[Rfam]
RNA sequence: UUUCAGUUAUAAGUAGUAGUGCCGCAGGUAACCACUCAAAUAUAUGGUUUACCUACUGCCUUCUGCUUAGAAUUGAAA
Number, nucleotide and partner (000 for none) at each position: 001u078002u077003u076004c075005a074006g073007u072008u000009a000010u069011a068012a067013g066014u065015a064016g063017u000018a061019g060020u000021g000022c000023c000024g056025c000026a054027g053028g052029u051030a050031a000032c000033c000034a000035c000036u000037c000038a000039a000040a000041u000042a000043u000044a000045u000046g000047g000048u000049u000050u030051a029052c028053c027054u026055a000056c024057u000058g000059c000060c019061u018062u000063c016064u015065g014066c013067u012068u011069a010070g000071a000072a007073u006074u005075g004076a003077a002078a001